[Rfam]
RNA sequence: UCCACUGUCAUUGGGGAGUAGCCGCCCUUCUUCACUGAGAGGGGUUUGCGUCAACAGACUUGUCUGGCCUUGCAACAGGGUCGGCAUGGCGCAAACAGUUUUUCAAGCCUGGCGAGACCUUUGACUGCACAGCCUCCAGAACUUUAAAAAGCUU
Numbered sequence: 001u002c003c004a005c006u007g008u009c010a011u012u013g014g015g016g017a018g019u020a021g022c023c024g025c026c027c028u029u030c031u032u033c034a035c036u037g038a039g040a041g042g043g044g045u046u047u048g049c050g051u052c053a054a055c056a057g058a059c060u061u062g063u064c065u066g067g068c069c070u071u072g073c074a075a076c077a078g079g080g081u082c083g084g085c086a087u088g089g090c091g092c093a094a095a096c097a098g099u100u101u102u103u104c105a106a107g108c109c110u111g112g113c114g115a116g117a118c119c120u121u122u123g124a125c126u127g128c129a130c131a132g133c134c135u136c137c138a139g140a141a142c143u144u145u146a147a148a149a150a151g152c153u154u
Base pairs, nucleotide, nucleotide: 026042027041028040044096045095046094047093048092049091050090051089052088053087061086062085063084064083097153098152099151100150101149102148103147